Background: Rfam assigns this 78-nucleotide RNA from Brunnivagina elsteri to the family "Cyano-1 RNA". The organism belongs to Brunnivagina elsteri, within Bacteria. Rfam classes the family as a small RNA. Pairs were carried over by alignment from the consensus structure, which is taken from published work.
RNA sequence: UUGUGUGUGAGGAGUAAGUUGAAAUAACAAAAAGCGCAUGGAGUGGAAACACGGUCACACGUCCAAGCGCUUUUUGUU
Numbered sequence: 001u002u003g004u005g006u007g008u009g010a011g012g013a014g015u016a017a018g019u020u021g022a023a024a025u026a027a028c029a030a031a032a033a034g035c036g037c038a039u040g041g042a043g044u045g046g047a048a049a050c051a052c053g054g055u056c057a058c059a060c061g062u063c064c065a066a067g068c069g070c071u072u073u074u075u076g077u078u
Stems, first nucleotide, its partner, number of pairs: 030074007040064003043060003